[Rfam]
RNA sequence: AAUACCUUUAAAUUGGUCCAGAGAGGCUGACAAGGUUAUCCCGGGUUGGGAUUCAGGCGCAGCAAUAUUUAUCAAGUGAUAUGUAGCGCUUUGUCGGCCUCAAUCAGGUAAAUUAUCUGAUUGAGGCUUUUUCAU
Numbered sequence: 001a002a003u004a005c006c007u008u009u010a011a012a013u014u015g016g017u018c019c020a021g022a023g024a025g026g027c028u029g030a031c032a033a034g035g036u037u038a039u040c041c042c043g044g045g046u047u048g049g050g051a052u053u054c055a056g057g058c059g060c061a062g063c064a065a066u067a068u069u070u071a072u073c074a075a076g077u078g079a080u081a082u083g084u085a086g087c088g089c090u091u092u093g094u095c096g097g098c099c100u101c102a103a104u105c106a107g108g109u110a111a112a113u114u115a116u117c118u119g120a121u122u123g124a125g126g127c128u129u130u131u132u133c134a135u
Base pairs, nucleotide, nucleotide: 004036005035006034007033008032013030014029015028016027017026018025061090062089063088066085067084068083070081071080072079073078096128097127098126099125100124101123102122103121104120105119106118107117108116109115

This 135-nucleotide sequence from Desulfotomaculum nigrificans belongs to the Rfam family "PyrR binding site".
Rfam links the family to the GO terms pyrimidine nucleobase biosynthetic process and pyrimidine nucleobase transport.
Rfam describes the family as follows. This family represents the PyrR binding site and terminator structure. This RNA structure is found upstream of a variety of genes involved in pyrimidine biosynthesis and transport. The alignment also includes a portion of the antiterminator structure.
A search with the family's covariance model found it, with a score of 62 bits.